[Rfam]
A member of the RNA family "algC RNA" from Yokenella regensburgei, 51 nucleotides long. Rfam classes the family as a cis-regulatory element.
RNA sequence: CAAAAAAUGGCCUUGCAUGGUCAGGGCCUCCUGUUGCCUGAAAAAGGGUAA
Number, nucleotide and partner (000 for none) at each position: 001c000002a000003a000004a000005a000006a000007a000008u000009g022010g021011c020012c019013u000014u000015g000016c000017a000018u000019g012020g011021u010022c009023a000024g000025g000026g000027c000028c000029u000030c000031c000032u000033g000034u000035u000036g000037c000038c000039u000040g000041a000042a000043a000044a000045a000046g000047g000048g000049u000050a000051a000